[Rfam]
RNA sequence: CAGUUAAAAAGCUCGUAGUUGAACUUUGGGCUGUGGACGUCGGUCGGCCUUUUGGUCAGUACUGACGCCUGCAUGCCUCAAUCGCCUGUAGACGUGCGCGUUCUUUACUGAGCGCGUAUCGGAUAUAGGACUUUUACUGUGAAAAAAUUAGAGUGUUCAAAGCAGGCUUAACGCUUGAAUACCUCAGCAUGGAAUAACGAAAUAGGACUUUGGUUCUAUUUUGUUGGUUUCUAGGACCGAAGUAAUGAUUAAUAGGGAUAGUUGGGGCCGUUAGUAUUUAAUUGUCAGAGGUGAAAUUCUUGGAUUUAUGAAAGACUAACUUCUGCGAAAGCAUUCGGCAAGGAUGUUUUCAUUAAUCAAGAACGAAAGUUAGGGGAUCGAAGACGAUCAGAUACCGUCGUAGUCUUAACCUUAAACGAUGCCAACUAGGGAUCGGUGGAUGUUAACAUUGACUUCAUCGGCACCUUAUGAGAAAUCAAAGUUUUUGGGUUCUGGGGGGAGUAUGGUCGCAAGGCUGAAACUUAAAGGAAU
Numbered sequence: 001c002a003g004u005u006a007a008a009a010a011g012c013u014c015g016u017a018g019u020u021g022a023a024c025u026u027u028g029g030g031c032u033g034u035g036g037a038c039g040u041c042g043g044u045c046g047g048c049c050u051u052u053u054g055g056u057c058a059g060u061a062c063u064g065a066c067g068c069c070u071g072c073a074u075g076c077c078u079c080a081a082u083c084g085c086c087u088g089u090a091g092a093c094g095u096g097c098g099c100g101u102u103c104u105u106u107a108c109u110g111a112g113c114g115c116g117u118a119u120c121g122g123a124u125a126u127a128g129g130a131c132u133u134u135u136a137c138u139g140u141g142a143a144a145a146a147a148u149u150a151g152a153g154u155g156u157u158c159a160a161a162g163c164a165g166g167c168u169u170a171a172c173g174c175u176u177g178a179a180u181a182c183c184u185c186a187g188c189a190u191g192g193a194a195u196a197a198c199g200a201a202a203u204a205g206g207a208c209u210u211u212g213g214u215u216c217u218a219u220u221u222u223g224u225u226g227g228u229u230u231c232u233a234g235g236a237c238c239g240a241a242g243u244a245a246u247g248a249u250u251a252a253u254a255g256g257g258a259u260a261g262u263u264g265g266g267g268c269c270g271u272u273a274g275u276a277u278u279u280a281a282u283u284g285u286c287a288g289a290g291g292u293g294a295a296a297u298u299c300u301u302g303g304a305u306u307u308a309u310g311a312a313a314g315a316c317u318a319a320c321u322u323c324u325g326c327g328a329a330a331g332c333a334u335u336c337g338g339c340a341a342g343g344a345u346g347u348u349u350u351c352a353u354u355a356a357u358c359a360a361g362a363a364c365g366a367a368a369g370u371u372a373g374g375g376g377a378u379c380g381a382a383g384a385c386g387a388u389c390a391g392a393u394a395c396c397g398u399c400g401u402a403g404u405c406u407u408a409a410c411c412u413u414a415a416a417c418g419a420u421g422c423c424a425a426c427u428a429g430g431g432a433u434c435g436g437u438g439g440a441u442g443u444u445a446a447c448a449u450u451g452a453c454u455u456c457a458u459c460g461g462c463a464c465c466u467u468a469u470g471a472g473a474a475a476u477c478a479a480a481g482u483u484u485u486u487g488g489g490u491u492c493u494g495g496g497g498g499g500a501g502u503a504u505g506g507u508c509g510c511a512a513g514g515c516u517g518a519a520a521c522u523u524a525a526a527g528g529a530a531u
Stems, first nucleotide, its partner, number of pairs: 001494003009491001011364001013362002018357003255351004259346002262343002267339004273317002277313003281309002284306001288299003322333001325332002369410006379403001383399004421490003424483003428466003433461008442453003470477002496523003505516004
Rfam assigns this 531-nucleotide part of an RNA from Capsaspora owczarzaki to the family "Eukaryotic small subunit ribosomal RNA".
Lineage of the source: Eukaryota > Opisthokonta > Filasterea > Ministeriida > Capsaspora owczarzaki.